RNA sequence: UAUCACCAAGGAUUGUUUUUCUCGCAAUAUUUUUCCUGCGAGAUACGGAAAGGACUCAAGCUAGCCACCACAGGCUGGCUUAGAUUCAUAAAAAAUAAAGGACAAG
Numbered sequence: 001u002a003u004c005a006c007c008a009a010g011g012a013u014u015g016u017u018u019u020u021c022u023c024g025c026a027a028u029a030u031u032u033u034u035c036c037u038g039c040g041a042g043a044u045a046c047g048g049a050a051a052g053g054a055c056u057c058a059a060g061c062u063a064g065c066c067a068c069c070a071c072a073g074g075c076u077g078g079c080u081u082a083g084a085u086u087c088a089u090a091a092a093a094a095a096u097a098a099a100g101g102a103c104a105a106g
Base pairs, nucleotide, nucleotide: 020043021042022041023040024039025038026037060079061078062077063076064075065074066073
The family of this 106-nucleotide sequence from Vibrio paucivorans is "gltS RNA". By type it is a cis-regulatory element.